Shown here is a 159-nucleotide RNA sequence from Populus tomentosa, a member of the family "MIR2912 microRNA precursor family". Gene Ontology terms of the family: RISC complex and miRNA-mediated post-transcriptional gene silencing. Rfam 15.1 lists 15,051 matches to the family in 15 species.
RNA sequence: UCUAGAACUCGAGAUAUGGUCUAAACACUGAAUAGUGUCUGGGCUGCAGGAAAGAUUCAGACUUCUUUGUUGUUGCUAUAUAAUUUGGACUUGAAAAUGACCUUUUUUAAAUCUUGGACUCCACAUGAAAGUUAUAGGCCUAUGUCUUACUUUUCCAUC
Numbered sequence: 001u002c003u004a005g006a007a008c009u010c011g012a013g014a015u016a017u018g019g020u021c022u023a024a025a026c027a028c029u030g031a032a033u034a035g036u037g038u039c040u041g042g043g044c045u046g047c048a049g050g051a052a053a054g055a056u057u058c059a060g061a062c063u064u065c066u067u068u069g070u071u072g073u074u075g076c077u078a079u080a081u082a083a084u085u086u087g088g089a090c091u092u093g094a095a096a097a098u099g100a101c102c103u104u105u106u107u108u109a110a111a112u113c114u115u116g117g118a119c120u121c122c123a124c125a126u127g128a129a130a131g132u133u134a135u136a137g138g139c140c141u142a143u144g145u146c147u148u149a150c151u152u153u154u155c156c157a158u159c
Base pairs, nucleotide, nucleotide: 003157005155006154007153009149011148012147013146014145015144016143017142018141019140021137022136023135025133027132028131029130035126036125037124041122042121043120045118048115049114050113051112054108055107059103060102063099068094072090073089074088